[Rfam]
RNA sequence: UCUAGCAGAAGAGGAGCAUUGCCCAGGCAGGUUUGGUGUGGAACCCCAAUUCCAAGACACCUAACUCAGGGGGAGCAAUGCCGAGAUGACAAUUCAUUGCGGGUGAAUUGAGCAUCGGGCGAGCAGGUUGAAUCCUGCCGACUGUCACCCUAGGUGAAGAGCUUCUGAGGUA
Numbered sequence: 001u002c003u004a005g006c007a008g009a010a011g012a013g014g015a016g017c018a019u020u021g022c023c024c025a026g027g028c029a030g031g032u033u034u035g036g037u038g039u040g041g042a043a044c045c046c047c048a049a050u051u052c053c054a055a056g057a058c059a060c061c062u063a064a065c066u067c068a069g070g071g072g073g074a075g076c077a078a079u080g081c082c083g084a085g086a087u088g089a090c091a092a093u094u095c096a097u098u099g100c101g102g103g104u105g106a107a108u109u110g111a112g113c114a115u116c117g118g119g120c121g122a123g124c125a126g127g128u129u130g131a132a133u134c135c136u137g138c139c140g141a142c143u144g145u146c147a148c149c150c151u152a153g154g155u156g157a158a159g160a161g162c163u164u165c166u167g168a169g170g171u172a
Base pairs, nucleotide, nucleotide: 006167007166008165009164010163011162016081017080018079019078020077021076022075024073030066031065032064033063035061036060037059085116086115087114088113090110091109092108093107094106095105096104117143118142120140123138124137125136126135127134145157146156147155148154149153
The record is a 172-nucleotide RNA from Vibrio nigripulchritudo, which matches "Lysine riboswitch aptamer" in Rfam. The family's consensus secondary structure is taken from published work. Its family is annotated with lysine biosynthetic process in the Gene Ontology. The organism belongs to Vibrio, within Bacteria.